[Rfam]
RNA sequence: CCCUCGAAACGGCAAACCACGUGCAAGCGUGGGACGCAAAGUCAUGGGUCCAUUUGCUUCAUUUCUCGAAGCAAUUGGAUCGCCAGACCACCGAA
Numbered sequence: 001c002c003c004u005c006g007a008a009a010c011g012g013c014a015a016a017c018c019a020c021g022u023g024c025a026a027g028c029g030u031g032g033g034a035c036g037c038a039a040a041g042u043c044a045u046g047g048g049u050c051c052a053u054u055u056g057c058u059u060c061a062u063u064u065c066u067c068g069a070a071g072c073a074a075u076u077g078g079a080u081c082g083c084c085a086g087a088c089c090a091c092c093g094a095a
Base pairs, nucleotide, nucleotide: 012037013036017032018031019030020029021028022027041088042087043086045085046084047083048080049079050078054074055073056072057071058070059069060068

Record summary
Rfam assigns this 95-nucleotide RNA from Rhodopirellula sp. MGV to the family "c-di-GMP-I riboswitch aptamer". It scores 58 bits against the family's covariance model.